[Rfam]
RNA: Small nucleolar RNA snoR8a
Organism: Triticum turgidum
Nucleotides: 087
Base pairs, nucleotide, nucleotide: 003087004086006084007083
Number, partner (000 for none) and nucleotide at each position: 001000g002000g003087u004086g005000g006084u007083g008000c009000a010000g011000u012000g013000a014000u015000u016000a017000u018000a019000a020000a021000a022000a023000u024000a025000u026000u027000c028000c029000u030000u031000g032000u033000g034000c035000u036000g037000a038000u039000g040000g041000g042000u043000g044000u045000u046000c047000c048000u049000u050000g051000u052000g053000a054000a055000c056000g057000g058000c059000u060000c061000c062000u063000a064000u065000a066000c067000a068000c069000c070000c071000a072000u073000a074000a075000a076000a077000u078000c079000u080000g081000a082000g083007c084006a085000c086004c087003a